[Rfam]
RNA sequence: GAGCUGUGAGGAAAUGCGAUUGCGAUUGUUAGGCCAAUCACCUUCAACUGACCUUCAGAUGAAAUCGCGCAUGCUGAGCUC
Number, nucleotide and partner (000 for none) at each position: 001g081002a080003g079004c078005u000006g000007u000008g000009a000010g000011g000012a000013a000014a000015u000016g000017c000018g000019a000020u000021u000022g000023c000024g000025a000026u000027u000028g000029u000030u000031a000032g000033g000034c000035c000036a000037a000038u000039c000040a000041c000042c000043u000044u000045c000046a000047a000048c000049u000050g000051a000052c000053c000054u000055u000056c000057a000058g000059a000060u000061g000062a000063a000064a000065u000066c000067g000068c000069g000070c000071a000072u000073g000074c000075u000076g000077a000078g004079c003080u002081c001

This 81-nucleotide RNA from Punica granatum belongs to the Rfam family "small nucleolar RNA snoR114". It is annotated as a C/D-box small nucleolar RNA. The match comes from Rfam's covariance-model search (52 bits). The literature on the family includes a 2009 paper in Nucleic Acids Res by Chen and Wu, "Mining small RNA sequencing data: a new approach to identify small nucleolar RNAs in Arabidopsis". The family's consensus secondary structure was predicted with RNAalifold.